[Rfam]
RNA sequence: UUUCCGCUUCUUUCCUCCCUGAGCGGAAGCCUUUACGAUGAGGCCUAUUGCCCCGAUUUUCCCCUUAAUCGGGGCUUUUUUU
Numbered sequence: 001u002u003u004c005c006g007c008u009u010c011u012u013u014c015c016u017c018c019c020u021g022a023g024c025g026g027a028a029g030c031c032u033u034u035a036c037g038a039u040g041a042g043g044c045c046u047a048u049u050g051c052c053c054c055g056a057u058u059u060u061c062c063c064c065u066u067a068a069u070c071g072g073g074g075c076u077u078u079u080u081u082u
Base pairs, nucleotide, nucleotide: 003027004026005025006024007023008022029044030043031042032041033040051074052073053072054071055070056069057068058067